[Rfam]
RNA sequence: CAAUCCACCCAGAGAUGGAUGGAUGAACCGCAAGAAGUCAGCAGAGGCCAUAGUACUGGUAGAGAAAAAAAAAAAACAAUACAGGAAGGGC
Numbered sequence: 001c002a003a004u005c006c007a008c009c010c011a012g013a014g015a016u017g018g019a020u021g022g023a024u025g026a027a028c029c030g031c032a033a034g035a036a037g038u039c040a041g042c043a044g045a046g047g048c049c050a051u052a053g054u055a056c057u058g059g060u061a062g063a064g065a066a067a068a069a070a071a072a073a074a075a076a077c078a079a080u081a082c083a084g085g086a087a088g089g090g091c
Stems, first nucleotide, its partner, number of pairs: 001025002004023004009018003038045002047091003056084003
RNA: Group II catalytic intron D1-D4-1
Organism: Cloacibacillus evryensis